Shown here is an 81-nucleotide RNA from Ovis aries, a member of the family "Small nucleolar RNA SNORD115".
Taxonomically the source falls in Ovis (Eukaryota, Teleostomi, Euteleostomi, Eutheria).
Pairs were carried over by alignment from the consensus structure, which was predicted with PFOLD.
RNA sequence: GGCGUGAUGAAUAGAAUGCAUAUAGUCCUGAAGAGAGAUGAUGACCCAAAAGUCAUGCUCAGUACAAUUGCACUGAGGACC
Numbered sequence: 001g002g003c004g005u006g007a008u009g010a011a012u013a014g015a016a017u018g019c020a021u022a023u024a025g026u027c028c029u030g031a032a033g034a035g036a037g038a039u040g041a042u043g044a045c046c047c048a049a050a051a052g053u054c055a056u057g058c059u060c061a062g063u064a065c066a067a068u069u070g071c072a073c074u075g076a077g078g079a080c081c
Base pairs, nucleotide, nucleotide: 001081002080005075006074008072009071
The family has 32 seed sequences and 3,387 matches in Rfam 15.1. The literature on the family includes a 2000 paper in Proc Natl Acad Sci U S A by Cavaille et al., "Identification of brain-specific and imprinted small nucleolar RNA genes exhibiting an unusual genomic organization". By type it is a C/D-box small nucleolar RNA.